[Rfam]
A member of the RNA family "Hepatitis C virus J7880 RNA" from Orthohepacivirus hominis, 123 nucleotides long. The source organism's lineage runs through Viruses, Riboviria, Orthornavirae, Kitrinoviricota and Orthohepacivirus. On this family, see Mauger et al., Proc Natl Acad Sci U S A 2015: "Functionally conserved architecture of hepatitis C virus RNA genomes". It is one of the family's seed sequences.

RNA sequence: GUGAAGGAGCGAGCAUCGGGGGUGAAGGGUCGCCUACUCUCUUUCGAGGAAGCGUGCUCCCUUGUUCCCCCCCACUCUGCCCGGUCAAAGUACGGGUACAGUGCAAAGGAUGUUCGUUCCUUC
Numbered sequence: 001g002u003g004a005a006g007g008a009g010c011g012a013g014c015a016u017c018g019g020g021g022g023u024g025a026a027g028g029g030u031c032g033c034c035u036a037c038u039c040u041c042u043u044u045c046g047a048g049g050a051a052g053c054g055u056g057c058u059c060c061c062u063u064g065u066u067c068c069c070c071c072c073c074a075c076u077c078u079g080c081c082c083g084g085u086c087a088a089a090g091u092a093c094g095g096g097u098a099c100a101g102u103g104c105a106a107a108g109g110a111u112g113u114u115c116g117u118u119c120c121u122u123c
Base pairs, nucleotide, nucleotide: 006120007119008118009117010116012114013113014112015111016110017109022065023064024063025062028057032053035050037048038047039046068103070101074097075096076095077094078092079091080090
Dot-bracket structure: .....(((((.((((((....((((..(...(..(.(((......))).)..)...)....))))..(.(...(((((((.........))).))))...).).....)))))).)))))...
It is annotated as a cis-regulatory element.